[Rfam]
Nucleotides: 127
Base pairs, nucleotide, nucleotide: 001053002052003051004050007044008043010041011040012039013038014037015036016035017034018033070095071094072093073092074091075090077085078084079083103123104122105121106120107119108118109117110116
Number, partner (000 for none) and nucleotide at each position: 001053g002052c003051a004050g005000g006000u007044g008043a009000a010041u011040g012039c013038a014037g015036c016035g017034u018033c019000a020000u021000a022000u023000g024000u025000g026000a027000a028000a029000c030000a031000u032000g033018g034017g035016c036015g037014u038013u039012g040011u041010g042000c043008u044007c045000c046000a047000u048000a049000u050004u051003u052002g053001u054000c055000u056000u057000a058000c059000u060000u061000u062000c063000u064000u065000c066000u067000u068000a069000a070095g071094a072093a073092u074091u075090a076000a077085u078084g079083c080000a081000u082000a083079g084078c085077a086000c087000a088000a089000u090075u091074a092073a093072u094071u095070c096000c097000g098000a099000u100000g101000a102000u103123g104122c105121c106120g107119a108118c109117u110116u111000g112000u113000a114000a115000c116110g117109a118108g119107u120106c121105g122104g123103c124000u125000u126000u127000u

Shown here is a 127-nucleotide RNA sequence from Citrobacter sp. JGM124, a member of the family "Fumarate/nitrate reductase regulator sRNA". A search with the family's covariance model found it, with a score of 95 bits. The base pairs follow the family's consensus structure, which is taken from published work. On this family, see Boysen et al., J Biol Chem 2010: "Translational regulation of gene expression by an anaerobically induced small non-coding RNA in Escherichia coli". Rfam classes the family as a small RNA.